[Rfam]
RNA sequence: UAAGUCCUUGUCUUAGGGGAGCAUGAUACUCCGUGAUCGUAUAGUGAGGGUAUCGAUGCUGGAACCCGUUACAAAAGACAACUCGCAUCCGUGAUACCUCGAGAUGCAAUUUUUGCAAGG
Numbered sequence: 001u002a003a004g005u006c007c008u009u010g011u012c013u014u015a016g017g018g019g020a021g022c023a024u025g026a027u028a029c030u031c032c033g034u035g036a037u038c039g040u041a042u043a044g045u046g047a048g049g050g051u052a053u054c055g056a057u058g059c060u061g062g063a064a065c066c067c068g069u070u071a072c073a074a075a076a077g078a079c080a081a082c083u084c085g086c087a088u089c090c091g092u093g094a095u096a097c098c099u100c101g102a103g104a105u106g107c108a109a110u111u112u113u114u115g116c117a118a119g120g
Stems, first nucleotide, its partner, number of pairs: 005019005021059004025054007038044001085107005090101001
RNA: U4atac minor spliceosomal RNA